[Rfam]
RNA sequence: GGGCAUACCCAUAGACCUUGCCUGACCCUGCGUGUGACCAGGCAGGGGGACAGUGUAGGCAAAAGUAAUUUGGAGUUUGUGUCAGCUCUCGCCAGCUUAUUUGGUGGCUGAAUAAGUUGCAUUGCUUCAACAUUU
Numbered sequence: 001g002g003g004c005a006u007a008c009c010c011a012u013a014g015a016c017c018u019u020g021c022c023u024g025a026c027c028c029u030g031c032g033u034g035u036g037a038c039c040a041g042g043c044a045g046g047g048g049g050a051c052a053g054u055g056u057a058g059g060c061a062a063a064a065g066u067a068a069u070u071u072g073g074a075g076u077u078u079g080u081g082u083c084a085g086c087u088c089u090c091g092c093c094a095g096c097u098u099a100u101u102u103g104g105u106g107g108c109u110g111a112a113u114a115a116g117u118u119g120c121a122u123u124g125c126u127u128c129a130a131c132a133u134u135u
Stems, first nucleotide, its partner, number of pairs: 003060002006057003016047009072128004077124001080121003093110004
RNA: Small nucleolar RNA SNORA58
Organism: Molossus molossus